[Rfam]
RNA sequence: GAGUGUGUCUGUAUGGCGAGUCUAACCCGAUCAUCGGGGAAGGCAUAGGGAAACCGACAUGGCCGCAGUGCUUUGCACCAGGGCCGCCGUCUUCAAGGGCGGGGAGUCAUUCGGACACGACCCGAAUCCGGACGAUCUACGCGUGGGCAAGGUGAAGCGUGGCGAAAGCUACGUGGAGGCCUGCCAGGGAUGGUGUCCUACAAUACCCUCCCGUGACCCAUGUGUAGGGGUGAAAGGCCCAUCGAGUCCGGCAACAGCUGGUU
Numbered sequence: 001g002a003g004u005g006u007g008u009c010u011g012u013a014u015g016g017c018g019a020g021u022c023u024a025a026c027c028c029g030a031u032c033a034u035c036g037g038g039g040a041a042g043g044c045a046u047a048g049g050g051a052a053a054c055c056g057a058c059a060u061g062g063c064c065g066c067a068g069u070g071c072u073u074u075g076c077a078c079c080a081g082g083g084c085c086g087c088c089g090u091c092u093u094c095a096a097g098g099g100c101g102g103g104g105a106g107u108c109a110u111u112c113g114g115a116c117a118c119g120a121c122c123c124g125a126a127u128c129c130g131g132a133c134g135a136u137c138u139a140c141g142c143g144u145g146g147g148c149a150a151g152g153u154g155a156a157g158c159g160u161g162g163c164g165a166a167a168g169c170u171a172c173g174u175g176g177a178g179g180c181c182u183g184c185c186a187g188g189g190a191u192g193g194u195g196u197c198c199u200a201c202a203a204u205a206c207c208c209u210c211c212c213g214u215g216a217c218c219c220a221u222g223u224g225u226a227g228g229g230g231u232g233a234a235a236g237g238c239c240c241a242u243c244g245a246g247u248c249c250g251g252c253a254a255c256a257g258c259u260g261g262u263u
Stems, first nucleotide, its partner, number of pairs: 005118007013110005020044004026038004048055002061085004068078004088101004121261002124258001128251006137227011148215001150182004157174007187212004192208002195206002229239003
Shown here is a 263-nucleotide part of an RNA from Halococcoides cellulosivorans, a member of the family "Archaeal large subunit ribosomal RNA". A search with the family's covariance model found it, with a score of 2839 bits. Taxonomically the source falls in Halococcoides (Archaea, Halobacteria, Halobacteriales, Haloarculaceae). The base pairs follow the family's consensus structure, which is taken from published work.